[Rfam]
RNA sequence: UGCGCACCCAAACCUCAGAGCCGCCGUGCACUAUGGCCGUGGCUCCAAGCGCCGUGCGCACAGCAGCGGGGGCGUCGUCACCUCCGGGGGGCUGCGGGUGCCCCUGGGAGUGAAUGUGGAGGCCGCACACAU
Numbered sequence: 001u002g003c004g005c006a007c008c009c010a011a012a013c014c015u016c017a018g019a020g021c022c023g024c025c026g027u028g029c030a031c032u033a034u035g036g037c038c039g040u041g042g043c044u045c046c047a048a049g050c051g052c053c054g055u056g057c058g059c060a061c062a063g064c065a066g067c068g069g070g071g072g073c074g075u076c077g078u079c080a081c082c083u084c085c086g087g088g089g090g091g092c093u094g095c096g097g098g099u100g101c102c103c104c105u106g107g108g109a110g111u112g113a114a115u116g117u118g119g120a121g122g123c124c125g126c127a128c129a130c131a132u
Stems, first nucleotide, its partner, number of pairs: 002059006019044006026037002071124003075120002082110004087105006
Overview:
Small nucleolar RNA SNORA68: a 132-nucleotide sequence from Oryctolagus cuniculus. Rfam describes the family as follows. U68 is a member of the H/ACA class of small nucleolar RNAs (snoRNAs) which act as guides in the the modification of uridines to pseudouridines. It scores 68 bits against the family's covariance model. The family's consensus secondary structure was predicted with PFOLD.